[Rfam]
RNA: Small nucleolar RNA SNORD2
RNA sequence: GAGUGAUAUGAUGGCACACCAUCUUUCGGGACUGACUCUUGCAAUGGAGAGCCUAUAACCUUCACUGAUCACUU
Dot-bracket structure: ((((((..............................................................))))))